[Rfam]
RNA: Plastid-psbA-3 3UTR RNA
RNA sequence: AAAAGACCAAUAUAUCAAUUCUUCAUUUAUGAAGAUAGACAUAUUGGUCUUUUUAAU
Numbered sequence: 001a002a003a004a005g006a007c008c009a010a011u012a013u014a015u016c017a018a019u020u021c022u023u024c025a026u027u028u029a030u031g032a033a034g035a036u037a038g039a040c041a042u043a044u045u046g047g048u049c050u051u052u053u054u055a056a057u
Stems, first nucleotide, its partner, number of pairs: 001053013020035005